[Rfam]
RNA sequence: UAAAUGGAGAGUUUGAUCCUGGCUCAGGAUGAACGCUGGCGGCGUGCCUAAUACAUGCAAGUCGAACGAACCACUUCGGUGGUUAGUGGCGAACGGGUGAGUAACACGUAGAUAACCUACCUAAAACUCGAGGAUAACACCGGGAAACUGGUGCUAAUACUGGAUAGGAUGUAAGGAUGAUUUUCUUACAUUUAAAGAUUAAUCGGUUUUAGAGGGGUCUGCGGCGCAUUAGUUAGUUGGUGGGGUAAAGGCCUACCAAGACGAUGAUGCGUAGCCGGACUGAGAGGUCUAACGGCCACAUUGGGACUGAGAACGGCCCAAACUCCUACGGGAGGCAGCAGUAGGGAAUUUUCGGCAAUGGGGGAAACCCUGACCGAGCAACGCCGCGUGAACGAAGAAGUUCUUCGGAAUGUAAAGUUCUUUUAUAUGGGAAGAAAAAAUCAAAAUUGACGGUACCAUAUGAAUAAGCCCCGGCUAACUAUGUGCCAGCAGCCGCGGUAAUACAUAGGGGGCGAGCGUUAUCCGGAUUUACUG
Numbered sequence: 001u002a003a004a005u006g007g008a009g010a011g012u013u014u015g016a017u018c019c020u021g022g023c024u025c026a027g028g029a030u031g032a033a034c035g036c037u038g039g040c041g042g043c044g045u046g047c048c049u050a051a052u053a054c055a056u057g058c059a060a061g062u063c064g065a066a067c068g069a070a071c072c073a074c075u076u077c078g079g080u081g082g083u084u085a086g087u088g089g090c091g092a093a094c095g096g097g098u099g100a101g102u103a104a105c106a107c108g109u110a111g112a113u114a115a116c117c118u119a120c121c122u123a124a125a126a127c128u129c130g131a132g133g134a135u136a137a138c139a140c141c142g143g144g145a146a147a148c149u150g151g152u153g154c155u156a157a158u159a160c161u162g163g164a165u166a167g168g169a170u171g172u173a174a175g176g177a178u179g180a181u182u183u184u185c186u187u188a189c190a191u192u193u194a195a196a197g198a199u200u201a202a203u204c205g206g207u208u209u210u211a212g213a214g215g216g217g218u219c220u221g222c223g224g225c226g227c228a229u230u231a232g233u234u235a236g237u238u239g240g241u242g243g244g245g246u247a248a249a250g251g252c253c254u255a256c257c258a259a260g261a262c263g264a265u266g267a268u269g270c271g272u273a274g275c276c277g278g279a280c281u282g283a284g285a286g287g288u289c290u291a292a293c294g295g296c297c298a299c300a301u302u303g304g305g306a307c308u309g310a311g312a313a314c315g316g317c318c319c320a321a322a323c324u325c326c327u328a329c330g331g332g333a334g335g336c337a338g339c340a341g342u343a344g345g346g347a348a349u350u351u352u353c354g355g356c357a358a359u360g361g362g363g364g365a366a367a368c369c370c371u372g373a374c375c376g377a378g379c380a381a382c383g384c385c386g387c388g389u390g391a392a393c394g395a396a397g398a399a400g401u402u403c404u405u406c407g408g409a410a411u412g413u414a415a416a417g418u419u420c421u422u423u424u425a426u427a428u429g430g431g432a433a434g435a436a437a438a439a440a441u442c443a444a445a446a447u448u449g450a451c452g453g454u455a456c457c458a459u460a461u462g463a464a465u466a467a468g469c470c471c472c473g474g475c476u477a478a479c480u481a482u483g484u485g486c487c488a489g490c491a492g493c494c495g496c497g498g499u500a501a502u503a504c505a506u507a508g509g510g511g512g513c514g515a516g517c518g519u520u521a522u523c524c525g526g527a528u529u530u531a532c533u534g
Stems, first nucleotide, its partner, number of pairs: 009025005027524004032520006039387006045380002047345001052343003056340003061090003066087002069084006097299003107223007116216002121212007129163001131161002138153006169191009197204002225271003232262003237259008274296004278289004301321005323334004351377001353376003359372005390420004400411004425461006434451001468513005479508005489496002
Shown here is a 534-nucleotide part of an RNA from Acholeplasma oculi, a member of the family "Bacterial small subunit ribosomal RNA". The match comes from Rfam's covariance-model search (1544 bits). The organism belongs to Acholeplasma, within Bacteria.